[Rfam]
RNA sequence: GAGCAAUGAUGAAAAGGUUUUACUACUGACCUCUACAAUUAUGACUAUUUUUACACUUGAUCUGACCUCA
Numbered sequence: 001g002a003g004c005a006a007u008g009a010u011g012a013a014a015a016g017g018u019u020u021u022a023c024u025a026c027u028g029a030c031c032u033c034u035a036c037a038a039u040u041a042u043g044a045c046u047a048u049u050u051u052u053a054c055a056c057u058u059g060a061u062c063u064g065a066c067c068u069c070a
Base pairs, nucleotide, nucleotide: 001069002068003067013034015032016031017030018029019028
A member of the RNA family "Small nucleolar RNA U2-30" from Crocuta crocuta, 70 nucleotides long. The literature on the family includes a 2004 paper in Curr Biol by Tycowski et al., "Guide RNAs with 5' Caps and Novel Box C/D snoRNA-like Domains for Modification of snRNAs in Metazoa". Its family is annotated with RNA processing and nucleolus in the Gene Ontology. Pairs were carried over by alignment from the consensus structure, which is taken from published work.